The family of this 167-nucleotide RNA from Oceanobacillus indicireducens is "M-box riboswitch aptamer (ykoK leader)". It scores 141 bits against the family's covariance model. Pairs were carried over by alignment from the consensus structure. A reference for the family is Barrick et al. (2004), "New RNA motifs suggest an expanded scope for riboswitches in bacterial genetic control", Proc Natl Acad Sci U S A. Rfam links the family to the GO terms response to magnesium ion and regulation of gene expression. Taxonomically the source falls in Oceanobacillus (Bacteria, Bacillota, Bacilli, Caryophanales). Rfam's curators write: M-box riboswitch, also know as ykoK leader is described as a metaloregulatory RNA that sense divalent metals and function as a genetic control element of genes related to divalent metal transport in bacteria. It was first reported upstream of the B.subtilis ykoK gene and genes with related functions in other bacteria.
RNA sequence: AUAGACCUUCGUUAGGUAAGGCUCCUGUGUUGGAGAUACGCUACUGCCCAAAAAUGUCCAAAGACGCCAAUGGGUCAACAGGAACCAUCGACAUAAGGUGGUUUUUAAUGUAGCUGGAUAUGAUUCCUAUGCCACACAGUGCUAAAGCUCUACGAUUGGAGGAUAUU
Numbered sequence: 001a002u003a004g005a006c007c008u009u010c011g012u013u014a015g016g017u018a019a020g021g022c023u024c025c026u027g028u029g030u031u032g033g034a035g036a037u038a039c040g041c042u043a044c045u046g047c048c049c050a051a052a053a054a055u056g057u058c059c060a061a062a063g064a065c066g067c068c069a070a071u072g073g074g075u076c077a078a079c080a081g082g083a084a085c086c087a088u089c090g091a092c093a094u095a096a097g098g099u100g101g102u103u104u105u106u107a108a109u110g111u112a113g114c115u116g117g118a119u120a121u122g123a124u125u126c127c128u129a130u131g132c133c134a135c136a137c138a139g140u141g142c143u144a145a146a147g148c149u150c151u152a153c154g155a156u157u158g159g160a161g162g163a164u165a166u167u
Stems, first nucleotide, its partner, number of pairs: 006162005011153002013096001015149003020143003025139006032133002040114005046075005055066004081105004087099003116127003